RAGATH-18 RNA: an 85-nucleotide RNA. Actinobacteria, Firmicutes, Fusobacteria, Thermotogae (1 example).

RNA sequence: UCUGUGGAUCGUUAUAUCAAAUGAGAGUAGCUAGUGAUAUUGAGUAUUUGGUAUUAGGGCAAAAUCAGACGGAAGGAAGCAGAAA
Numbered sequence: 001u002c003u004g005u006g007g008a009u010c011g012u013u014a015u016a017u018c019a020a021a022u023g024a025g026a027g028u029a030g031c032u033a034g035u036g037a038u039a040u041u042g043a044g045u046a047u048u049u050g051g052u053a054u055u056a057g058g059g060c061a062a063a064a065u066c067a068g069a070c071g072g073a074a075g076g077a078a079g080c081a082g083a084a085a
Base pairs, nucleotide, nucleotide: 001083002082003081004080005079009072010071011070012069013068022067023066024065030060031059032058035056036055037054038053039052040051041050042049043048
Dot-bracket structure: (((((...(((((........(((.....(((..(((((((((....))))))))).)))....))))))))......)))))..

By type it is a small RNA.